The record is a 107-nucleotide sequence from Vulpes vulpes, which matches "mir-8834 microRNA precursor family" in Rfam. The family has 2 seed sequences and 13,926 matches in Rfam 15.1. Rfam links the family to the GO terms RISC complex and miRNA-mediated post-transcriptional gene silencing.
RNA sequence: AGGAGGCACAACCACAGUGGCGGCAGCCAGCUCUGGAGCCCUGAAUUCAGCUCCCGCAGUAUCUCCAGAGCUCUCUGUCUGCAGGGGCCUGGAUGCUUCGGGGGUGG
Numbered sequence: 001a002g003g004a005g006g007c008a009c010a011a012c013c014a015c016a017g018u019g020g021c022g023g024c025a026g027c028c029a030g031c032u033c034u035g036g037a038g039c040c041c042u043g044a045a046u047u048c049a050g051c052u053c054c055c056g057c058a059g060u061a062u063c064u065c066c067a068g069a070g071c072u073c074u075c076u077g078u079c080u081g082c083a084g085g086g087g088c089c090u091g092g093a094u095g096c097u098u099c100g101g102g103g104g105u106g107g
Base pairs, nucleotide, nucleotide: 002099003098004097005096009091010090012087013086019079020078021077022076023075025074026073029072030071031070032069033068034067035066036065037064041059042058043057